[Rfam]
RNA sequence: UGAAUCUAAUAGAUCAUACCGUAGACAGCAGGGGCCUCCGGGCUUAAAGAUUCCCUGCCGAGGUGUCAGGCGAUAAAGCACAGCUUUUCAAGCAGUGCAUAUGAACGCGUGCCUCCAUGUCUGCGGAUGUGGAGGCAUUUUUAUGCCUCC
Numbered sequence: 001u002g003a004a005u006c007u008a009a010u011a012g013a014u015c016a017u018a019c020c021g022u023a024g025a026c027a028g029c030a031g032g033g034g035c036c037u038c039c040g041g042g043c044u045u046a047a048a049g050a051u052u053c054c055c056u057g058c059c060g061a062g063g064u065g066u067c068a069g070g071c072g073a074u075a076a077a078g079c080a081c082a083g084c085u086u087u088u089c090a091a092g093c094a095g096u097g098c099a100u101a102u103g104a105a106c107g108c109g110u111g112c113c114u115c116c117a118u119g120u121c122u123g124c125g126g127a128u129g130u131g132g133a134g135g136c137a138u139u140u141u142u143a144u145g146c147c148u149c150c
Stems, first nucleotide, its partner, number of pairs: 028058006034043003112135010
Shown here is a 150-nucleotide RNA from Alkalicoccus urumqiensis, a member of the family "Ribosomal protein L10 leader". A search with the family's covariance model found it, with a score of 66 bits. The base pairs follow the family's consensus structure, which was predicted with CMfinder. The source organism's lineage runs through Bacteria, Bacillota, Caryophanales, Bacillaceae and Alkalicoccus. On this family, see Zengel and Lindahl, Prog Nucleic Acid Res Mol Biol 1994: "Diverse mechanisms for regulating ribosomal protein synthesis in Escherichia coli". This family is a putative r-protein leader autoregulatory structure found in B. subtilis and other low-GC Gram-positive bacteria. Rfam classes the family as a cis-regulatory leader.